[Rfam]
Nucleotides: 114
Base pairs, nucleotide, nucleotide: 013100014099017096018095019094020093023090024089025088026087027086028085029084030083031082032081034079035078036077037076038075040073
Number, partner (000 for none) and nucleotide at each position: 001000c002000g003000c004000u005000u006000u007000g008000c009000c010000g011000c012000c013100u014099c015000u016000g017096g018095u019094u020093c021000g022000c023090u024089u025088g026087g027086u028085g029084c030083a031082g032081g033000u034079c035078g036077g037076g038075a039000a040073c041000g042000c043000u044000c045000c046000a047000g048000u049000c050000c051000u052000g053000c054000a055000g056000c057000g058000c059000g060000g061000a062000c063000g064000a065000a066000c067000g068000a069000g070000c071000c072000g073040g074000a075038u076037c077036c078035c079034g080000c081032c082031u083030u084029g085028c086027a087026c088025c089024a090023a091000c092000u093020g094019a095018a096017u097000c098000g099014g100013a101000g102000a103000c104000g105000g106000a107000c108000u109000g110000c111000g112000a113000c114000c
Notes: The family of this 114-nucleotide RNA from Zingiber officinale is "MIR168 microRNA precursor family". For this family Rfam cites "Prediction of plant microRNA targets" (Rhoades et al., Cell, 2002). Lineage of the source: Eukaryota > Mesangiospermae > Liliopsida > Zingiberales > Zingiber. The match comes from Rfam's covariance-model search (77 bits). The base pairs follow the family's consensus structure, which was predicted with WAR. Gene Ontology terms of the family: miRNA-mediated post-transcriptional gene silencing and RISC complex.